Record summary
The family of this 103-nucleotide RNA from Alkaliphilus peptidifermentans is "SAM riboswitch aptamer (S box leader)". NCBI's taxonomy places the organism under Bacteria, Bacillati, Clostridia, Alkaliphilus, Alkaliphilus peptidifermentans. The family's consensus secondary structure is taken from published work. It scores 83 bits against the family's covariance model. Rfam links the family to the GO term regulation of gene expression.
RNA sequence: CUCAUAUCCAGAGUGGUGGAGGGAGCGGCCCUAUGAAACCCGGCAACCGGCUAAUUUUAGUAACGGUGCUAAUUCCGACAGUUAGAAUACUGGGAGAUGUGAG
Dot-bracket structure: ((((((((....(.(((...(((..[[[)))......))))((((.((.(((......)))...))))))...(]]].((((......))))..)))))))))